RNA: TPP riboswitch aptamer (THI element)
RNA sequence: GAAUCAAAUCAGGGGUGCCGGAUGAGUCCGGCUGAGAUUAAGACCACCAGAAUGUCUUUGACCCUUAACCUGAUCUGGGUAAUGCCAGCGUAGGAAGCAUAAACGCGCGGAAG
Numbered sequence: 001g002a003a004u005c006a007a008a009u010c011a012g013g014g015g016u017g018c019c020g021g022a023u024g025a026g027u028c029c030g031g032c033u034g035a036g037a038u039u040a041a042g043a044c045c046a047c048c049a050g051a052a053u054g055u056c057u058u059u060g061a062c063c064c065u066u067a068a069c070c071u072g073a074u075c076u077g078g079g080u081a082a083u084g085c086c087a088g089c090g091u092a093g094g095a096a097g098c099a100u101a102a103a104c105g106c107g108c109g110g111a112a113g
Stems, first nucleotide, its partner, number of pairs: 007100001010097001011065004017032005040058004069094004075088004